[Rfam]
This 223-nucleotide sequence from Ferroacidibacillus organovorans belongs to the Rfam family "Group II catalytic intron D1-D4-6". Taxonomically the source falls in Ferroacidibacillus (Bacteria, Bacillota, Bacilli, Caryophanales). A search with the family's covariance model found it, with a score of 152 bits.
Nucleotides: 223
Base pairs, nucleotide, nucleotide: 012036013035014034015033016032020030021029022028025189026188038090040088041087044085045084046083047082048080049079050075051074052073053072054071055070056069057068058067059066060065112217113215115214116213117212118211119210120209134208135207136206137205138204140166141165142164145160146159147158171202172201173200174199175198176197177196178195180193181192
Number, partner (000 for none) and nucleotide at each position: 001000g002000a003000a004000a005000u006000c007000c008000u009000g010000c011000c012036u013035g014034g015033u016032a017000a018000g019000a020030c021029u022028u023000a024000a025189g026188c027000c028022a029021a030020g031000u032016u033015a034014c035013c036012a037000g038090u039000a040088g041087c042000g043000a044085g045084u046083c047082u048080u049079g050075g051074g052073u053072u054071c055070g056069c057068a058067g059066g060065a061000g062000c063000a064000a065060u066059u067058u068057u069056g070055c071054g072053a073052a074051c075050u076000a077000a078000g079049c080048g081000u082047a083046g084045a085044c086000a087041g088040c089000a090038g091000g092000g093000u094000a095000g096000u097000a098000g099000g100000c101000c102000u103000g104000a105000a106000u107000g108000u109000g110000g111000u112217u113215g114000a115214g116213c117212u118211u119210c120209g121000a122000a123000a124000u125000g126000a127000g128000u129000a130000c131000a132000g133000c134208g135207g136206g137205a138204a139000a140166g141165u142164c143000g144000a145160c146159g147158g148000u149000u150000u151000c152000g153000a154000a155000a156000c157000u158147c159146u160145g161000g162000a163000a164142g165141a166140c167000c168000a169000c170000a171202u172201u173200c174199u175198g176197c177196u178195g179000g180193g181192c182000g183000a184000u185000a186000c187000g188026g189025c190000g191000a192181g193180c194000a195178c196177a197176g198175c199174g200173g201172a202171a203000c204138u205137u206136c207135c208134c209120c210119g211118g212117g213116g214115u215113c216000g217112g218000a219000g220000a221000g222000c223000c